[Rfam]
RNA sequence: GAUAACUGGUGGACACGGAGACUGAAACAAACUCAUAGAGUGUGUGCUUGUGUGGCAUAAGCUUCUUCUUUCGUUAAUGAGACUGGAGUUUUACGACAGCACUACAUUU
Numbered sequence: 001g002a003u004a005a006c007u008g009g010u011g012g013a014c015a016c017g018g019a020g021a022c023u024g025a026a027a028c029a030a031a032c033u034c035a036u037a038g039a040g041u042g043u044g045u046g047c048u049u050g051u052g053u054g055g056c057a058u059a060a061g062c063u064u065c066u067u068c069u070u071u072c073g074u075u076a077a078u079g080a081g082a083c084u085g086g087a088g089u090u091u092u093a094c095g096a097c098a099g100c101a102c103u104a105c106a107u108u109u
Base pairs, nucleotide, nucleotide: 044102045101046100047099048098050097060090061089062088063087064086065085067082068081069080070079